A member of the RNA family "mir-3473 microRNA precursor family" from Jaculus jaculus, 76 nucleotides long.
Its family is annotated with RISC complex, cellular response to mechanical stimulus and miRNA-mediated post-transcriptional gene silencing in the Gene Ontology.
The base pairs follow the family's consensus structure, which was predicted with RNAalifold.
Lineage of the source: Eukaryota > Deuterostomia > Mammalia > Euarchontoglires > Jaculus.
[Rfam]
RNA sequence: ACUGCUAAGCCAUCUCUCCAGCCCAUAUUUAAAACUUUAAAAUGCUAUGAUUGGGCUGGAGAGAUGGCUUAGCAGU
Numbered sequence: 001a002c003u004g005c006u007a008a009g010c011c012a013u014c015u016c017u018c019c020a021g022c023c024c025a026u027a028u029u030u031a032a033a034a035c036u037u038u039a040a041a042a043u044g045c046u047a048u049g050a051u052u053g054g055g056c057u058g059g060a061g062a063g064a065u066g067g068c069u070u071a072g073c074a075g076u
Stems, first nucleotide, its partner, number of pairs: 002075023